[Rfam]
RNA sequence: GAAGACCCUGUUGAGCUUGACUCUAGUCUGACUCUGUGAAGAGACAUGAGAGGUGUAGCAUAAGUGGGAGGUCACGGGAUACGGCCUCGUUUCGGCGGGGUCCUCGUGGCCGCAAGUGAAAUACCACUACUCUCAUCGUUUCUUUACUUACUCGGUGGAGCGGGAAGCGGACCAAUGUGUUGUCCACGCUUCUAGCGCCAAGCGAUGGGCCCUCGGUUUCUCUUCGGGGUGCCGGUUGGGCCUGCGCGACCUGUUCCGAGGACAGUGUCAGGCGGGGAGUUUGACUGGGGCGGUACAUCUGUCAAACGGUAACGCAGGUGUCCUAAGGCGAGCUCAGCGAGGACAGAAACCUCGCGUAGAGCAAAAGGGCAAAUGCUUGCUUGAUCUUGAAUUUCAGUACGAUUCGAGACCGCGAAAGCGGGGCCCCUCGAUCCUUUUGGCUUUAAGAGUUUUAAGCAAGAGGUGUCAGAAAAGUUACCACAGGGAUAACUGGCUUGUGGCGGCCAAGCGUUCAUAGCGACGUCGCUUUUUGAUCCUUCGAUGU
Numbered sequence: 001g002a003a004g005a006c007c008c009u010g011u012u013g014a015g016c017u018u019g020a021c022u023c024u025a026g027u028c029u030g031a032c033u034c035u036g037u038g039a040a041g042a043g044a045c046a047u048g049a050g051a052g053g054u055g056u057a058g059c060a061u062a063a064g065u066g067g068g069a070g071g072u073c074a075c076g077g078g079a080u081a082c083g084g085c086c087u088c089g090u091u092u093c094g095g096c097g098g099g100g101u102c103c104u105c106g107u108g109g110c111c112g113c114a115a116g117u118g119a120a121a122u123a124c125c126a127c128u129a130c131u132c133u134c135a136u137c138g139u140u141u142c143u144u145u146a147c148u149u150a151c152u153c154g155g156u157g158g159a160g161c162g163g164g165a166a167g168c169g170g171a172c173c174a175a176u177g178u179g180u181u182g183u184c185c186a187c188g189c190u191u192c193u194a195g196c197g198c199c200a201a202g203c204g205a206u207g208g209g210c211c212c213u214c215g216g217u218u219u220c221u222c223u224u225c226g227g228g229g230u231g232c233c234g235g236u237u238g239g240g241c242c243u244g245c246g247c248g249a250c251c252u253g254u255u256c257c258g259a260g261g262a263c264a265g266u267g268u269c270a271g272g273c274g275g276g277g278a279g280u281u282u283g284a285c286u287g288g289g290g291c292g293g294u295a296c297a298u299c300u301g302u303c304a305a306a307c308g309g310u311a312a313c314g315c316a317g318g319u320g321u322c323c324u325a326a327g328g329c330g331a332g333c334u335c336a337g338c339g340a341g342g343a344c345a346g347a348a349a350c351c352u353c354g355c356g357u358a359g360a361g362c363a364a365a366a367g368g369g370c371a372a373a374u375g376c377u378u379g380c381u382u383g384a385u386c387u388u389g390a391a392u393u394u395c396a397g398u399a400c401g402a403u404u405c406g407a408g409a410c411c412g413c414g415a416a417a418g419c420g421g422g423g424c425c426c427c428u429c430g431a432u433c434c435u436u437u438u439g440g441c442u443u444u445a446a447g448a449g450u451u452u453u454a455a456g457c458a459a460g461a462g463g464u465g466u467c468a469g470a471a472a473a474g475u476u477a478c479c480a481c482a483g484g485g486a487u488a489a490c491u492g493g494c495u496u497g498u499g500g501c502g503g504c505c506a507a508g509c510g511u512u513c514a515u516a517g518c519g520a521c522g523u524c525g526c527u528u529u530u531u532g533a534u535c536c537u538u539c540g541a542u543g544u
Base pairs, nucleotide, nucleotide: 007484008483009482010481012480013479014476015475016474017473018472020280021279022278023277027272028271029270030269031268032267036147037146038145039144040143041142042141043140044139045138046136047135048134049133050132051131052130063128064127065126066125067124070111071110072109073108074107075106076105077104078103151260152259153258154257155256161253162252163251164250169185170184171183172182202247203246204245283296284294285293286292297319298318299317300316301315302314322423323422328380329379330378331377332376333375334360335359337355338354339353340352341351342350361370362369385409386408387407388406389405390404391403392402393401411420412419413418434462435461436460437459438458439457442456443455444454445453493534495532497531499527500526501525502524503523504522508518509517
Eukaryotic large subunit ribosomal RNA: a 544-nucleotide part of an RNA from Haemaphysalis longicornis. Taxonomically the source falls in Haemaphysalis (Eukaryota, Arachnida, Ixodoidea, Ixodidae). Gene Ontology terms of the family: ribosome and structural constituent of ribosome.